[Rfam]
RNA sequence: AAGAUUGAAGAAAUUGUAAAAAUGUAUUAUAUUUAAAAUUGUCAGCAAUGACUAUGGUAAUAAAUGUCGCUUAUAAUAGGCGUUUUGGACUCGGGGGCGGUACCCGACGCCUCCACCAUUAAAAUUAUGGGGGCGAACUAGCUUCGACAGGCGUUAAAAAAGGUAGAUUUUACCCGGUAUGAUACCACCGAUUAUGGGUCAAAAUAGUAAAUGCAAACGAUAAUUUUGCUAGCAAUGAAAGAUUCGCUCCUAUGGCUCUAGCAGCUUAAGUGUGAAUUAAUCAUUAGCGGUUUGGGGGCUACCGGGCAACAGAAAGCCCCUUCU
Numbered sequence: 001a002a003g004a005u006u007g008a009a010g011a012a013a014u015u016g017u018a019a020a021a022a023u024g025u026a027u028u029a030u031a032u033u034u035a036a037a038a039u040u041g042u043c044a045g046c047a048a049u050g051a052c053u054a055u056g057g058u059a060a061u062a063a064a065u066g067u068c069g070c071u072u073a074u075a076a077u078a079g080g081c082g083u084u085u086u087g088g089a090c091u092c093g094g095g096g097g098c099g100g101u102a103c104c105c106g107a108c109g110c111c112u113c114c115a116c117c118a119u120u121a122a123a124a125u126u127a128u129g130g131g132g133g134c135g136a137a138c139u140a141g142c143u144u145c146g147a148c149a150g151g152c153g154u155u156a157a158a159a160a161a162g163g164u165a166g167a168u169u170u171u172a173c174c175c176g177g178u179a180u181g182a183u184a185c186c187a188c189c190g191a192u193u194a195u196g197g198g199u200c201a202a203a204a205u206a207g208u209a210a211a212u213g214c215a216a217a218c219g220a221u222a223a224u225u226u227u228g229c230u231a232g233c234a235a236u237g238a239a240a241g242a243u244u245c246g247c248u249c250c251u252a253u254g255g256c257u258c259u260a261g262c263a264g265c266u267u268a269a270g271u272g273u274g275a276a277u278u279a280a281u282c283a284u285u286a287g288c289g290g291u292u293u294g295g296g297g298g299c300u301a302c303c304g305g306g307c308a309a310c311a312g313a314a315a316g317c318c319c320c321u322u323c324u
Base pairs, nucleotide, nucleotide: 041052042051043050044049056174057173058172059171060170066168067167068166069164070163071162072161081153082152083151085150086149087148091107092106093105094104095103108135109134110133111132112131113130114129175190176189177188178187180201181200182199185197186196288304289303290302291301294321295320296319297318298317299316

Alphaproteobacteria transfer-messenger RNA: a 324-nucleotide RNA from endosymbiont of Acanthamoeba sp. UWC8. The base pairs follow the family's consensus structure, which is taken from published work. The organism belongs to Holosporaceae, within Bacteria. A reference for the family is Williams and Bartel (1996), "Phylogenetic analysis of tmRNA secondary structure", RNA. About the family: Bacterial tmRNA, also known as 10Sa RNA or SsrA, is named for its dual tRNA and mRNA-like properties. Its role is to liberate the mRNA from a stalled ribosome. To accomplish this part of the tmRNA is used as a reading frame that ends in a translation stop signal. The broken mRNA is replaced in the ribosome by the tmRNA and translation of the tmRNA leads to addition of a proteolysis tag to the incomplete protein enabling recognition by a protease. Recently a number of permuted tmRNA genes have been found encoded in two parts. tmRNAs have been identified in eubacteria and some chloroplasts but are absent from archaeal and eukaryote nuclear genomes.